Shown here is a 138-nucleotide sequence from Leuconostoc mesenteroides, a member of the family "FMN riboswitch aptamer (RFN element)". The sequence is in the family's curated seed alignment. About the family: The RFN element is a highly conserved domain that is found frequently in the 5'-untranslated regions of prokaryotic mRNAs that encode for flavin mononucleotide (FMN) biosynthesis and transport proteins. The source organism's lineage runs through Bacteria, Bacillati, Bacilli, Leuconostoc and Leuconostoc mesenteroides subsp. mesenteroides.
RNA sequence: UUUAAUCUUCGGGGCAGGGUGUAAUUCCCGACCGACGGUGAUGGUGAAUAACCUCAGUCCGUGACCCGCGAUAUUUUCGCGGUUGACACAGUGAAAUUCUGUGACCGACAGUUAAAGUCUGGAUGGGAGAAGAUUUGA
Numbered sequence: 001u002u003u004a005a006u007c008u009u010c011g012g013g014g015c016a017g018g019g020u021g022u023a024a025u026u027c028c029c030g031a032c033c034g035a036c037g038g039u040g041a042u043g044g045u046g047a048a049u050a051a052c053c054u055c056a057g058u059c060c061g062u063g064a065c066c067c068g069c070g071a072u073a074u075u076u077u078c079g080c081g082g083u084u085g086a087c088a089c090a091g092u093g094a095a096a097u098u099c100u101g102u103g104a105c106c107g108a109c110a111g112u113u114a115a116a117g118u119c120u121g122g123a124u125g126g127g128a129g130a131a132g133a134u135u136u137g138a
Stems, first nucleotide, its partner, number of pairs: 004135007017029003031118002033107002035062004057105002066082002087103005109121003